RNA sequence: GCGUGGGUCGGCCCGCUGAACUGGACCAGCGGGCUGGGGGAAACCGCCGCCCCGCUCCCCGCGGGCGACGGUCCGGCCCGGGAAGUUGGAGAAGCCUUCCCGGGCCGGC
Numbered sequence: 001g002c003g004u005g006g007g008u009c010g011g012c013c014c015g016c017u018g019a020a021c022u023g024g025a026c027c028a029g030c031g032g033g034c035u036g037g038g039g040g041a042a043a044c045c046g047c048c049g050c051c052c053c054g055c056u057c058c059c060c061g062c063g064g065g066c067g068a069c070g071g072u073c074c075g076g077c078c079c080g081g082g083a084a085g086u087u088g089g090a091g092a093a094g095c096c097u098u099c100c101c102g103g104g105c106c107g108g109c
Base pairs, nucleotide, nucleotide: 002107006074007073009036010035011034012033013032014031015030016029017028018027044071045070046069048067049066050065051064052063075106076105077104078103079102080101081100082099083098084097085096086094087093

Streptomyces RNA 4115: a 109-nucleotide RNA sequence from Streptomyces abyssalis. Taxonomically the source falls in Streptomyces (Bacteria, Bacillati, Kitasatosporales, Streptomycetaceae). From the family's description: Identified by deep sequencing of transcriptome at the end of exponential growth phase. Sequencing size consistent with notrthern blot size. The match comes from Rfam's covariance-model search (70 bits). Rfam classes the family as a small RNA.